Nuclear RNase P: a 315-nucleotide RNA sequence from Eleutherodactylus coqui.
Rfam's curators write: Ribonuclease P (RNase P) is a ubiquitous endoribonuclease, found in archaea, bacteria and eukarya as well as chloroplasts and mitochondria.
RNA sequence: GGUGGAGAGAAGCUCAGUGCUGAGCCUCCAUGCAGAGUACUGUAGUUACCCUUCAGCUAGCCUUGGGUAAGGUCUCAGUUGAGAGCUAUAUACUCCUUUCACAAAGCGUUGUUUAAACAAAGCAUGUGAGUUCCCAUCAACCUUGGUCAGCUUGCAACUUGAAAGAACAAGAAGCAGUUAGCACUCAGAAUGCAGUACUGCUACAGAUUCAAAGUUGUCCAAGUUUGGAAUUGACUCACAGUUGCUGAGUUGAGCUCCAUGACUGAGAGGAGAGUGCAGACUUUCCCAACUCAAUUCAGACUACUAUCUCCCAAA
Numbered sequence: 001g002g003u004g005g006a007g008a009g010a011a012g013c014u015c016a017g018u019g020c021u022g023a024g025c026c027u028c029c030a031u032g033c034a035g036a037g038u039a040c041u042g043u044a045g046u047u048a049c050c051c052u053u054c055a056g057c058u059a060g061c062c063u064u065g066g067g068u069a070a071g072g073u074c075u076c077a078g079u080u081g082a083g084a085g086c087u088a089u090a091u092a093c094u095c096c097u098u099u100c101a102c103a104a105a106g107c108g109u110u111g112u113u114u115a116a117a118c119a120a121a122g123c124a125u126g127u128g129a130g131u132u133c134c135c136a137u138c139a140a141c142c143u144u145g146g147u148c149a150g151c152u153u154g155c156a157a158c159u160u161g162a163a164a165g166a167a168c169a170a171g172a173a174g175c176a177g178u179u180a181g182c183a184c185u186c187a188g189a190a191u192g193c194a195g196u197a198c199u200g201c202u203a204c205a206g207a208u209u210c211a212a213a214g215u216u217g218u219c220c221a222a223g224u225u226u227g228g229a230a231u232u233g234a235c236u237c238a239c240a241g242u243u244g245c246u247g248a249g250u251u252g253a254g255c256u257c258c259a260u261g262a263c264u265g266a267g268a269g270g271a272g273a274g275u276g277c278a279g280a281c282u283u284u285c286c287c288a289a290c291u292c293a294a295u296u297c298a299g300a301c302u303a304c305u306a307u308c309u310c311c312c313a314a315a
Base pairs, nucleotide, nucleotide: 003313004312008309009308010307013267014266015265016264017263018262021065022064023063024062035051037049038048039047040045074299075298077296078295084243085242086241087240094108096106097105098104110124111123112122113121114120126239127238128237129236130235131234132233146224147223269286270285271284272283273282274281

The organism belongs to Eleutherodactylus, within Eukaryota. By type it is a ribozyme. A search with the family's covariance model found it, with a score of 100 bits. Rfam links the family to the GO terms ribonuclease P complex, ribonuclease P activity and tRNA processing. The base pairs follow the family's consensus structure, which is taken from published work.